The record is an 84-nucleotide RNA sequence from Populus trichocarpa, which matches "Small nucleolar RNA Z102/R77" in Rfam. Pairs were carried over by alignment from the consensus structure, which was predicted with PFOLD. Gene Ontology terms of the family: nucleolus and RNA processing. For this family Rfam cites "The high diversity of snoRNAs in plants: identification and comparative study of 120 snoRNA genes from Oryza sativa" (Chen et al., Nucleic Acids Res, 2003).
RNA sequence: GAAUGAAAUGAUGAUUAUUGUUUCCCUAUUGGUUUGAUCUUGCCGCAAUGAUGGCAUCAUUGUAUUAGCUCUAUCUGAUCAUUC
Numbered sequence: 001g002a003a004u005g006a007a008a009u010g011a012u013g014a015u016u017a018u019u020g021u022u023u024c025c026c027u028a029u030u031g032g033u034u035u036g037a038u039c040u041u042g043c044c045g046c047a048a049u050g051a052u053g054g055c056a057u058c059a060u061u062g063u064a065u066u067a068g069c070u071c072u073a074u075c076u077g078a079u080c081a082u083u084c
Stems, first nucleotide, its partner, number of pairs: 002083004036058001041056004
Dot-bracket structure: .((((..............................(....((((........)))).).....................)))).